[Rfam]
RNA sequence: AUAAUUUCAUCUUUCUGAACUCGUAUAAUUCCGGGAAUAUGGCCGGAAGUUUCUACCCAAGGACCGUAAAUCUUUGGACUACGAGAAUGACGACCAGACGG
Dot-bracket structure: ...................((((((...((((((........))))))........(((((((.......)))))))..))))))................
RNA: Purine riboswitch aptamer
Organism: Paenibacillus dendritiformis